[Rfam]
RNA sequence: UGAUGAAGCAUUGCACCCAGGGUCUGGUCUACCAGACAUUGUACCUGGAGCUUUUUAUUUUUAAUUAAAACCUUAC
Numbered sequence: 001u002g003a004u005g006a007a008g009c010a011u012u013g014c015a016c017c018c019a020g021g022g023u024c025u026g027g028u029c030u031a032c033c034a035g036a037c038a039u040u041g042u043a044c045c046u047g048g049a050g051c052u053u054u055u056u057a058u059u060u061u062u063a064a065u066u067a068a069a070a071c072c073u074u075a076c
Stems, first nucleotide, its partner, number of pairs: 005054005017048004022037005
The record is a 76-nucleotide RNA from Dicentrarchus labrax, which matches "U1A polyadenylation inhibition element (PIE)" in Rfam.
Rfam describes the family as follows. This family represents the U1A polyadenylation inhibition element (PIE). PIE is a regulatory RNA which is responsible for the regulation of the length of the polyA tail of the U1A pre-mRNA. The PIE is located in the U1A mRNA 3' UTR. PIE adopts a U-shaped structure, with binding sites for a single U1A protein at each bend and when complexed with the two proteins it blocks activity of poly(A) polymerase (PAP), and inhibits its activity.
For this family Rfam cites "The NMR structure of the 38 kDa U1A protein - PIE RNA complex reveals the basis of cooperativity in regulation of polyadenylation by human U1A protein" (Varani et al., Nat Struct Biol, 2000).
NCBI's taxonomy places the organism under Eukaryota, Opisthokonta, Teleostei, Ctenosquamata, Dicentrarchus.